A member of the RNA family "ctRNA", 47 nucleotides long. Rfam 15.1 lists 245 matches to the family in 136 species. About the family: This family represents a group of ctRNAs (or counter-transcribed RNAs) from p42d and related plasmids. ctRNAs are small, highly structured, antisense sequences which are involved in negative regulation. Members of this family are known to bind to the mRNA of repC causing translational repression. The family's consensus secondary structure is taken from published work. The match comes from Rfam's covariance-model search (52 bits). The family's RNA type in Rfam is antisense RNA. On this family, see Venkova-Canova et al., Mol Microbiol 2004: "Two discrete elements are required for the replication of a repABC plasmid: an antisense RNA and a stem-loop structure".

[Rfam]
RNA sequence: AAAGAGGUUUCCACGAUGGCGACGUUUUGGGGGCCUUUUUCUUUUUC
Numbered sequence: 001a002a003a004g005a006g007g008u009u010u011c012c013a014c015g016a017u018g019g020c021g022a023c024g025u026u027u028u029g030g031g032g033g034c035c036u037u038u039u040u041c042u043u044u045u046u047c
Stems, first nucleotide, its partner, number of pairs: 005036008015026004